[Rfam]
Nucleotides: 217
Base pairs, nucleotide, nucleotide: 008195009194010193017051020049065080066079067078068077069076070075094116095115096114097113152188154186155185156184158182159181163176164175165174166173199215200214201213202212203211
Number, partner (000 for none) and nucleotide at each position: 001000g002000g003000u004000u005000u006000c007000g008195g009194u010193g011000g012000c013000g014000c015000a016000c017051g018000a019000c020049g021000c022000u023000a024000a025000g026000u027000g028000a029000a030000c031000u032000a033000a034000c035000c036000g037000a038000a039000g040000g041000u042000a043000a044000a045000a046000c047000a048000a049020c050000c051017u052000c053000c054000c055000c056000c057000u058000c059000c060000c061000c062000c063000u064000c065080u066079c067078a068077c069076c070075c071000g072000u073000u074000c075070g076069g077068g078067u079066g080065a081000a082000u083000c084000g085000c086000c087000c088000a089000a090000a091000c092000c093000c094116c095115c096114g097113g098000c099000g100000g101000g102000c103000g104000c105000a106000c107000c108000a109000g110000u111000u112000c113097c114096c115095g116094g117000u118000g119000c120000a121000c122000g123000c124000u125000u126000u127000c128000c129000u130000c131000a132000c133000a134000a135000c136000c137000c138000c139000c140000a141000g142000a143000a144000a145000c146000g147000c148000g149000u150000u151000c152188g153000a154186c155185c156184c157000u158182c159181g160000a161000c162000c163176g164175g165174g166173a167000c168000u169000u170000c171000c172000a173166u174165c175164c176163c177000g178000a179000a180000c181159c182158g183000a184156g185155g186154g187000c188152u189000c190000g191000a192000c193010c194009a195008c196000g197000g198000c199215g200214g201213a202212a203211g204000a205000g206000a207000g208000c209000a210000c211203c212202u213201u214200c215199c216000c217000c